[Rfam]
RNA: MIR5387 microRNA precursor family
RNA sequence: UUGUAACACGGGCCAGUGCUAAAGGGUCCUGCCCAACGGCUGCUGACAGGUGUUGUCAGUGCAGGGACCCUUUAGCACCGGUUCUUGUUACCAA
Numbered sequence: 001u002u003g004u005a006a007c008a009c010g011g012g013c014c015a016g017u018g019c020u021a022a023a024g025g026g027u028c029c030u031g032c033c034c035a036a037c038g039g040c041u042g043c044u045g046a047c048a049g050g051u052g053u054u055g056u057c058a059g060u061g062c063a064g065g066g067a068c069c070c071u072u073u074a075g076c077a078c079c080g081g082u083u084c085u086u087g088u089u090a091c092c093a094a
Base pairs, nucleotide, nucleotide: 003091004090005089006088007087008086010084011083012082013081014080016078017077018076019075020074021073022072023071024070025069026068027067029065030064033059036056037055043049044048